[Rfam]
The record is a 173-nucleotide RNA from Amedibacillus dolichus, which matches "Group II catalytic intron D1-D4-3" in Rfam. The organism belongs to Amedibacillus dolichus, within Bacteria.

RNA sequence: UUGACAGUGAUGUCAAGGGUGGAGGAAGUGGUGUAGCAAUUCUUUUGAGCGUACGAACAGAAACUUGAUAUAAGGCUAAAUGGUGGGUAAGGUUGCAUUGCAAACCGAAGCCCAAACGAUAGACGUAAAACCAAGACAGUAAAUUAAGACGUUGUGAAAGAAAUAGGAUUCAU
Number, nucleotide and partner (000 for none) at each position: 001u016002u015003g014004a013005c012006a011007g000008u000009g000010a000011u006012g005013u004014c003015a002016a001017g000018g000019g000020u000021g000022g000023a000024g000025g000026a000027a000028g173029u172030g171031g170032u000033g000034u000035a000036g000037c000038a000039a000040u000041u000042c160043u159044u158045u157046u156047g155048a153049g152050c151051g150052u149053a000054c000055g000056a000057a000058c000059a000060g000061a000062a000063a000064c148065u147066u146067g145068a144069u143070a000071u000072a000073a000074g000075g140076c139077u138078a000079a000080a000081u133082g132083g131084u130085g113086g112087g111088u110089a000090a000091g106092g105093u104094u103095g000096c000097a000098u000099u000100g000101c000102a000103a094104a093105c092106c091107g000108a000109a000110g088111c087112c086113c085114a000115a000116a000117c000118g000119a000120u000121a000122g000123a000124c000125g000126u000127a000128a000129a000130a084131c083132c082133a081134a000135g000136a000137c000138a077139g076140u075141a000142a000143a069144u068145u067146a066147a065148g064149a052150c051151g050152u049153u048154g000155u047156g046157a045158a044159a043160g042161a000162a000163a000164u000165a000166g000167g000168a000169u000170u031171c030172a029173u028